[Rfam]
RNA sequence: CCGCAAGCUACGACUGAAAGUGGGGUCACGAUUGCAUCGAAUUGUGCAAAGUCAAAAUUUGCGGCUAGUUACGAU
Numbered sequence: 001c002c003g004c005a006a007g008c009u010a011c012g013a014c015u016g017a018a019a020g021u022g023g024g025g026u027c028a029c030g031a032u033u034g035c036a037u038c039g040a041a042u043u044g045u046g047c048a049a050a051g052u053c054a055a056a057a058u059u060u061g062c063g064g065c066u067a068g069u070u071a072c073g074a075u
Base pairs, nucleotide, nucleotide: 027046028045029044030043031042032041033040